[Rfam]
The family of this 398-nucleotide sequence from Salinarimonas ramus is "Bacterial RNase P class A". NCBI's taxonomy places the organism under Bacteria, Pseudomonadati, Alphaproteobacteria, Hyphomicrobiales, Salinarimonas. The family's consensus secondary structure is taken from published work.
RNA sequence: UCAGUCGGCCGGGCGGCCGCUCCGCCUCGCGGCGGGGAGGAAAGUCCGGGCUCCACGGAGACACGGUGCCGGAUAACGUCCGGCGGGGGCGACCCCAGGGACAGUGCCACAGAAAGCAGACCGCCGCGGCCCGCGCCAGCAUGCGCGUCAUCCGCGGUCAGGGUGAAAGGGUGCGGUAAGAGCGCACCGCGGGGCCGGCAACGGUGCCCGGCACGGCAAACCCCACCGGGAGCAAGACCGAAUAGGGACGACACGGGGCCUCGCGUCCCAGGGCCGCUCCGGCCUCGUCGUCCGGGUUGGUUGCACGAGGCGGCCGGCGACGGCCGUCCCAGAUGAAUGGCCGCCCAUCGCGGGGAGACCCGCGUGGACAGAACCCGGCUUACAGGCCGGCUGACGCU
Numbered sequence: 001u002c003a004g005u006c007g008g009c010c011g012g013g014c015g016g017c018c019g020c021u022c023c024g025c026c027u028c029g030c031g032g033c034g035g036g037g038a039g040g041a042a043a044g045u046c047c048g049g050g051c052u053c054c055a056c057g058g059a060g061a062c063a064c065g066g067u068g069c070c071g072g073a074u075a076a077c078g079u080c081c082g083g084c085g086g087g088g089g090c091g092a093c094c095c096c097a098g099g100g101a102c103a104g105u106g107c108c109a110c111a112g113a114a115a116g117c118a119g120a121c122c123g124c125c126g127c128g129g130c131c132c133g134c135g136c137c138a139g140c141a142u143g144c145g146c147g148u149c150a151u152c153c154g155c156g157g158u159c160a161g162g163g164u165g166a167a168a169g170g171g172u173g174c175g176g177u178a179a180g181a182g183c184g185c186a187c188c189g190c191g192g193g194g195c196c197g198g199c200a201a202c203g204g205u206g207c208c209c210g211g212c213a214c215g216g217c218a219a220a221c222c223c224c225a226c227c228g229g230g231a232g233c234a235a236g237a238c239c240g241a242a243u244a245g246g247g248a249c250g251a252c253a254c255g256g257g258g259c260c261u262c263g264c265g266u267c268c269c270a271g272g273g274c275c276g277c278u279c280c281g282g283c284c285u286c287g288u289c290g291u292c293c294g295g296g297u298u299g300g301u302u303g304c305a306c307g308a309g310g311c312g313g314c315c316g317g318c319g320a321c322g323g324c325c326g327u328c329c330c331a332g333a334u335g336a337a338u339g340g341c342c343g344c345c346c347a348u349c350g351c352g353g354g355g356a357g358a359c360c361c362g363c364g365u366g367g368a369c370a371g372a373a374c375c376c377g378g379c380u381u382a383c384a385g386g387c388c389g390g391c392u393g394a395c396g397c398u
Base pairs, nucleotide, nucleotide: 001394002393003392004391005390006389007388008387009386010385011383012345013344014343015342016341017340018339020037021036022035023034024033025032026031042381043380044379046378047377048376049375050374051232052231053230054229060279061278064228065227066226067225068224069083070082071081072080073079084098085096086095087094088093099223100222104221105220106217107216108215121162122161123158124157125156126155127154128153129152170188171187172186173185174184175183189212190210191209192208193207195204196203197202236302237301238300239299246293247292248291249290250289251288271285272284273283274282275281309328310327311326312325313324314323315322316321